[Rfam]
RNA sequence: AGCCGAGCUCUGCCAGCGGAUCAGGUGUGUCAUCCACCACUGGCAGAGGCGGGGGAACCACAAGCGGCUGUCUAAAGAAGCAGCCUUGGGGUGAAGUCCGCAGCAGAAGUGCCCACGUAUUCAAGUCCCUCUUGGGAUACCUGUGUGCCGUGAGCGCUUCGUGCGGACCGGGUCUUUGUACUCUCUGACCCGAAUCCGACAGCUAACUUCGCAGGCUUUUGAGAGAGGAA
Numbered sequence: 001a002g003c004c005g006a007g008c009u010c011u012g013c014c015a016g017c018g019g020a021u022c023a024g025g026u027g028u029g030u031c032a033u034c035c036a037c038c039a040c041u042g043g044c045a046g047a048g049g050c051g052g053g054g055g056a057a058c059c060a061c062a063a064g065c066g067g068c069u070g071u072c073u074a075a076a077g078a079a080g081c082a083g084c085c086u087u088g089g090g091g092u093g094a095a096g097u098c099c100g101c102a103g104c105a106g107a108a109g110u111g112c113c114c115a116c117g118u119a120u121u122c123a124a125g126u127c128c129c130u131c132u133u134g135g136g137a138u139a140c141c142u143g144u145g146u147g148c149c150g151u152g153a154g155c156g157c158u159u160c161g162u163g164c165g166g167a168c169c170g171g172g173u174c175u176u177u178g179u180a181c182u183c184u185c186u187g188a189c190c191c192g193a194a195u196c197c198g199a200c201a202g203c204u205a206a207c208u209u210c211g212c213a214g215g216c217u218u219u220u221g222a223g224a225g226a227g228g229a230a
Base pairs, nucleotide, nucleotide: 001217002216003215004214008048009047010046011045012044013043014042015041016040049212050211051210052209053208054207059088060087089197090196091195097167098166099165100164101163102162170191171190172189173188
RNA: c-di-AMP riboswitch aptamer (ydaO/yuaA leader)
Organism: Paenarthrobacter aurescens